Rfam assigns this 95-nucleotide RNA from Clostridium sp. AM58-1XD to the family "Glycine riboswitch aptamer". The source organism's lineage runs through Bacteria, Bacillota, Eubacteriales, Clostridiaceae and Clostridium.
RNA sequence: AAGAAUCUCUCUGGAGAGUCCCCGGCAUGGGGCGCCGAAGGUGUACGGCAGAAAAGAGCUGCCAAUCUCUCAGGCAAAAGGACAGGGUAAUGUUC
Numbered sequence: 001a002a003g004a005a006u007c008u009c010u011c012u013g014g015a016g017a018g019u020c021c022c023c024g025g026c027a028u029g030g031g032g033c034g035c036c037g038a039a040g041g042u043g044u045a046c047g048g049c050a051g052a053a054a055a056g057a058g059c060u061g062c063c064a065a066u067c068u069c070u071c072a073g074g075c076a077a078a079a080g081g082a083c084a085g086g087g088u089a090a091u092g093u094u095c
Stems, first nucleotide, its partner, number of pairs: 006090001009087005020032004034075003037071002041069001043067001047062001